[Rfam]
RNA sequence: UUGGAUCACUGGGGGAGCCGGAAGCAGCCGGCUGAGAGUGGACUCUUGAUGUCCUUGACCCUUAUAACCUGAUCUGGCUAGAACCAGCGUAGGGAAGUGGGAAUAGAUGUUA
Numbered sequence: 001u002u003g004g005a006u007c008a009c010u011g012g013g014g015g016a017g018c019c020g021g022a023a024g025c026a027g028c029c030g031g032c033u034g035a036g037a038g039u040g041g042a043c044u045c046u047u048g049a050u051g052u053c054c055u056u057g058a059c060c061c062u063u064a065u066a067a068c069c070u071g072a073u074c075u076g077g078c079u080a081g082a083a084c085c086a087g088c089g090u091a092g093g094g095a096a097g098u099g100g101g102a103a104u105a106g107a108u109g110u111u112a
Base pairs, nucleotide, nucleotide: 006100007099008098009097010096011062012061013060014059016056017032018031019030020029021028040054041053042052043051068093069092070091071090074087075086076085077084
Dot-bracket structure: .....(((((((((.((((((......))))).......((((.......)))).)..)))).....((((..((((......))))..))))..)))))............
The record is a 112-nucleotide RNA sequence from Falsibacillus pallidus, which matches "TPP riboswitch aptamer (THI element)" in Rfam. The match comes from Rfam's covariance-model search (80 bits).